[Rfam]
RNA sequence: CCUCAUCUGCAUCCUCGCGACUAAUGACAACCUUUAAUCCACGCCUCGUUGGAUAAAGCCUCUCAUUAGCCGCGCGAACCUCUGCAACUGAAGAUCACACUCAGCAACAAUACAUUAGUUUGAGCAAUAUUGCUGCCGAUUGCUCGAAAAAAGGGGCCGUAAAGGCCCCCUUUU
Numbered sequence: 001c002c003u004c005a006u007c008u009g010c011a012u013c014c015u016c017g018c019g020a021c022u023a024a025u026g027a028c029a030a031c032c033u034u035u036a037a038u039c040c041a042c043g044c045c046u047c048g049u050u051g052g053a054u055a056a057a058g059c060c061u062c063u064c065a066u067u068a069g070c071c072g073c074g075c076g077a078a079c080c081u082c083u084g085c086a087a088c089u090g091a092a093g094a095u096c097a098c099a100c101u102c103a104g105c106a107a108c109a110a111u112a113c114a115u116u117a118g119u120u121u122g123a124g125c126a127a128u129a130u131u132g133c134u135g136c137c138g139a140u141u142g143c144u145c146g147a148a149a150a151a152a153g154g155g156g157c158c159g160u161a162a163a164g165g166c167c168c169c170c171u172u173u174u
Stems, first nucleotide, its partner, number of pairs: 001093001003091003009085003016076004021069007099128001153169006
A member of the RNA family "SraG RNA" from Winslowiella iniecta, 174 nucleotides long. NCBI's taxonomy places the organism under Bacteria, Pseudomonadati, Enterobacterales, Erwiniaceae, Winslowiella. It scores 128 bits against the family's covariance model. On this family, see Argaman et al., Curr Biol 2001: "Novel small RNA-encoding genes in the intergenic regions of Escherichia coli". The base pairs follow the family's consensus structure, which was predicted with PFOLD. Rfam describes the family as follows. This RNA was discovered in E. coli during a large scale screen. Evidence was found for specific cleavage of this RNA.